[Rfam]
RNA sequence: UUUCAGGCUGUGACCCUCUUGAGGGAAGCACUUUCUGUUGUCUGAAUAAAAAGAAAGUGCUUCCUUUUAGAGGCUUACGGUCUGAGA
Numbered sequence: 001u002u003u004c005a006g007g008c009u010g011u012g013a014c015c016c017u018c019u020u021g022a023g024g025g026a027a028g029c030a031c032u033u034u035c036u037g038u039u040g041u042c043u044g045a046a047u048a049a050a051a052a053g054a055a056a057g058u059g060c061u062u063c064c065u066u067u068u069a070g071a072g073g074c075u076u077a078c079g080g081u082c083u084g085a086g087a
Base pairs, nucleotide, nucleotide: 001087002086003085004084005083007081008080009079010078011077012076013075016072017071018070021067022066023065024064025063026062027061028060029059030058031057032056033055034054035053038052039051
RNA: mir-515 microRNA precursor family